[Rfam]
RNA sequence: ACUCGGGCACGAUCCUUUCACACUUCCUUCCACGCCGGAGAAGUGUUGCGGAAGGAACCGACCCGUAGUUCAACCCUGAGGGA
Numbered sequence: 001a002c003u004c005g006g007g008c009a010c011g012a013u014c015c016u017u018u019c020a021c022a023c024u025u026c027c028u029u030c031c032a033c034g035c036c037g038g039a040g041a042a043g044u045g046u047u048g049c050g051g052a053a054g055g056a057a058c059c060g061a062c063c064c065g066u067a068g069u070u071c072a073a074c075c076c077u078g079a080g081g082g083a
Stems, first nucleotide, its partner, number of pairs: 001069003004065004013056007020046007